Shown here is a 177-nucleotide sequence from Orthohepacivirus hominis, a member of the family "Hepatitis C virus (HCV) cis-acting replication element (CRE)". It is one of the family's seed sequences. The family's consensus secondary structure was predicted with RNAfold. Taxonomically the source falls in Orthohepacivirus (Viruses, Orthornavirae, Flasuviricetes, Hepaciviridae). Rfam classes the family as a cis-regulatory element.
RNA sequence: CCAAUCCCGGCUGCGUCUCAGUUGGACUUGUCCGGCUGGUUCGUUGCUGGAUACAGUGGGGGAGACAUAUAUCACAGCUUGUCUCGUGCCCGACCCCGCUGGUUCAUGUGGUGCCUACUCCUACUUUCUGUAGGGGUAGGCAUCUACUUGCUCCCCAACCGAUGAACGGGGAGCUAA
Numbered sequence: 001c002c003a004a005u006c007c008c009g010g011c012u013g014c015g016u017c018u019c020a021g022u023u024g025g026a027c028u029u030g031u032c033c034g035g036c037u038g039g040u041u042c043g044u045u046g047c048u049g050g051a052u053a054c055a056g057u058g059g060g061g062g063a064g065a066c067a068u069a070u071a072u073c074a075c076a077g078c079u080u081g082u083c084u085c086g087u088g089c090c091c092g093a094c095c096c097c098g099c100u101g102g103u104u105c106a107u108g109u110g111g112u113g114c115c116u117a118c119u120c121c122u123a124c125u126u127u128c129u130g131u132a133g134g135g136g137u138a139g140g141c142a143u144c145u146a147c148u149u150g151c152u153c154c155c156c157a158a159c160c161g162a163u164g165a166a167c168g169g170g171g172a173g174c175u176a177a
Base pairs, nucleotide, nucleotide: 007050008049009048010047011046013044018039019038020037021036022035023034024033025032026031055100056099057098058097059096060095061094062085063084064083065082066081067080112142113141114140115139116138117137118136119135120134121133122132123131124130150174151173152172153171154170155169156168